[Rfam]
Nucleotides: 089
Stems, first nucleotide, its partner, number of pairs: 011079006019069003022065003027060005033054002
Number, partner (000 for none) and nucleotide at each position: 001000u002000u003000a004000a005000a006000a007000u008000u009000a010000a011079a012078u013077g014076g015075c016074g017000a018000u019069u020068g021067u022065c023064g024063g025000u026000a027060u028059a029058g030057u031056c032000u033054c034053u035000g036000u037000g038000u039000u040000u041000g042000u043000u044000u045000u046000a047000g048000g049000a050000g051000u052000c053034a054033g055000u056031g057030a058029c059028u060027a061000g062000a063024c064023c065022g066000a067021a068020c069019a070000c071000u072000c073000g074016u075015g076014c077013u078012a079011u080000a081000a082000u083000u084000u085000u086000a087000g088000a089000a
Record summary:
Rfam assigns this 89-nucleotide RNA sequence from Musca domestica to the family "mir-286 microRNA precursor family". Gene Ontology terms of the family: miRNA-mediated post-transcriptional gene silencing and RISC complex. The family's consensus secondary structure was predicted with RNAalifold. Taxonomically the source falls in Musca (Eukaryota, Altocrustacea, Dicondylia, Muscinae). On this family, see Li et al., BMC Genomics 2009: "Direct sequencing and expression analysis of a large number of miRNAs in Aedes aegypti and a multispecies survey of novel mosquito miRNAs".